The record is a 34-nucleotide RNA sequence from Polaribacter sp. KT25b, which matches "S16-Flavobacteria ribosomal protein leader" in Rfam. A search with the family's covariance model found it, with a score of 41 bits. For this family Rfam cites "Discovery of 20 novel ribosomal leader candidates in bacteria and archaea" (Eckert and Weinberg, BMC Microbiol, 2020). The source organism's lineage runs through Bacteria, Pseudomonadati, Flavobacteriia, Flavobacteriales and Polaribacter. Rfam classes the family as a cis-regulatory leader.

RNA sequence: UUAAUAAUCAAGGUCGCGAACCUUAAAAAAUUAA
Numbered sequence: 001u002u003a004a005u006a007a008u009c010a011a012g013g014u015c016g017c018g019a020a021c022c023u024u025a026a027a028a029a030a031u032u033a034a
Base pairs, nucleotide, nucleotide: 001034002033003032004031005030010024011023012022013021014020